Shown here is a 225-nucleotide RNA from Heterocephalus glaber, a member of the family "Small nucleolar RNA SNORD17". Rfam links the family to the GO terms nucleolus and RNA processing. The literature on the family includes a 2001 paper in EMBO J by Huttenhofer et al., "RNomics: an experimental approach that identifies 201 candidates for novel, small, non-messenger RNAs in mouse".
[Rfam]
Nucleotides: 225
Base pairs, nucleotide, nucleotide: 010224011223012222013221014220017217018216019215020214023211024210025209026208027207028206029205030203031202034199035198038172039171040170041169042167044165045164046163047162048161051157052156053155054154055153057086060085061084063082064080065079066078067077068076069075089150090149091148092147094145095144101138102137103136107132109131110130111129112128113127114126115125116124117123118122174197175196176195177194178193179192180191181190182189183188
Number, partner (000 for none) and nucleotide at each position: 001000g002000u003000g004000a005000a006000g007000u008000g009000a010224u011223g012222a013221u014220u015000c016000g017217g018216u019215u020214u021000a022000u023211c024210c025209a026208u027207u028206c029205g030203c031202u032000g033000a034199g035198u036000g037000u038172g039171c040170u041169g042167u043000c044165c045164c046163g047162a048161c049000c050000u051157u052156c053155u054154u055153c056000a057086a058000g059000c060085c061084c062000a063082g064080g065079u066078u067077c068076c069075u070000g071000u072000u073000c074000u075069a076068g077067g078066a079065a080064c081000c082063c083000a084061g085060g086057u087000g088000u089150g090149u091148g092147g093000c094145c095144c096000c097000c098000a099000g100000u101138g102137c103136c104000c105000c106000u107132c108000a109131g110130c111129c112128u113127g114126c115125a116124g117123u118122g119000u120000u121000c122118u123117g124116c125115u126114g127113u128112g129111g130110g131109u132107g133000c134000c135000u136103g137102g138101u139000g140000c141000u142000g143000g144095g145094g146000a147092c148091u149090g150089c151000a152000g153055g154054a155053g156052g157051a158000c159000c160000a161048g162047u163046u164045g165044g166000u167042g168000g169041u170040g171039g172038c173000a174197g175196g176195g177194u178193g179192g180191g181190g182189c183188c184000u185000c186000u187000g188183g189182g190181u191180c192179c193178c194177a195176c196175u197174c198035a199034c200000c201000g202031a203030g204000a205029u206028g207027a208026g209025u210024g211023g212000u213000g214020g215019a216018a217017u218000c219000u220014g221013a222012u223011c224010a225000c

From the family's description: The snoRNA HBI-43 belongs to the C/D family of snoRNAs, guiding 2'O-ribose methylation at position U3797 of the 28S rRNA. Pseudouridylation in position U3797 is predicted to be guided by the H/ACA snoRNA ACA48. It scores 156 bits against the family's covariance model.